Rfam assigns this 87-nucleotide RNA from Paenibacillus apis to the family "c-di-GMP-I riboswitch aptamer".

RNA sequence: GAUUGACAAAGGCAAACCUAUCGAAAGCUAGGGACGCAAAGCUACAGGGGUUAAGGCGAUUCAUCGCUAAACCAGCCAGCUACCGAU
Number, nucleotide and partner (000 for none) at each position: 001g000002a000003u000004u000005g000006a000007c000008a000009a000010a000011g000012g037013c036014a000015a000016a000017c032018c031019u030020a029021u000022c027023g000024a000025a000026a000027g022028c000029u020030a019031g018032g017033g000034a000035c000036g013037c012038a000039a000040a081041g080042c079043u078044a000045c000046a000047g077048g076049g073050g072051u071052u000053a000054a000055g000056g067057c066058g065059a064060u000061u000062c000063a000064u059065c058066g057067c056068u000069a000070a000071a051072c050073c049074a000075g000076c048077c047078a043079g042080c041081u040082a000083c000084c000085g000086a000087u000

The organism belongs to Paenibacillus, within Bacteria. Pairs were carried over by alignment from the consensus structure, which is taken from published work. It scores 81 bits against the family's covariance model.